[Rfam]
RNA sequence: CAGGGGUUGCAUGAGGCCAUAGCAAAAGCACUCACAGUGCUGCCCUGUCAGAUUCCAACAAAUCUGCAAAUUCUGCU
Numbered sequence: 001c002a003g004g005g006g007u008u009g010c011a012u013g014a015g016g017c018c019a020u021a022g023c024a025a026a027a028g029c030a031c032u033c034a035c036a037g038u039g040c041u042g043c044c045c046u047g048u049c050a051g052a053u054u055c056c057a058a059c060a061a062a063u064c065u066g067c068a069a070a071u072u073c074u075g076c077u
Stems, first nucleotide, its partner, number of pairs: 013045001015044003021077004026072002028040003049066006

The record is a 77-nucleotide sequence from Alligator mississippiensis, which matches "Mammalian CPEB3 ribozyme" in Rfam.
Rfam describes the family as follows. The mammalian CPEB3 ribozyme is a self cleaving RNA located in the second intron of the CPEB3 gene which belongs to a family of genes regulating messenger RNA polyadenylation.